This 140-nucleotide RNA sequence from Otolemur garnettii belongs to the Rfam family "Small nucleolar RNA SNORA1". Rfam's curators put it in the seed alignment. By type it is an H/ACA-box small nucleolar RNA. ACA1 is a member of the H/ACA class of snoRNA that guide the sites of modification of uridines to pseudouridines.
[Rfam]
RNA sequence: AGCCUCAUUCUAAAUAAAAUAAGAGUGGGCACUGUUGAUAAUAGUGUUCAAAAAUUGUUAAUGUGGCUAAAUUGAGACACAGGUUAUGCUUCCAUCACAGUAUAUGUAUUACAGUGGUGACAAUGAGACCUGUGACAUUU
Numbered sequence: 001a002g003c004c005u006c007a008u009u010c011u012a013a014a015u016a017a018a019a020u021a022a023g024a025g026u027g028g029g030c031a032c033u034g035u036u037g038a039u040a041a042u043a044g045u046g047u048u049c050a051a052a053a054a055u056u057g058u059u060a061a062u063g064u065g066g067c068u069a070a071a072u073u074g075a076g077a078c079a080c081a082g083g084u085u086a087u088g089c090u091u092c093c094a095u096c097a098c099a100g101u102a103u104a105u106g107u108a109u110u111a112c113a114g115u116g117g118u119g120a121c122a123a124u125g126a127g128a129c130c131u132g133u134g135a136c137a138u139u140u
Stems, first nucleotide, its partner, number of pairs: 002067003006063003026050007079133005093119006
Dot-bracket structure: .(((.(((.................(((((((...........)))))))..........))).)))...........(((((.........((((((...............)))))).........))))).......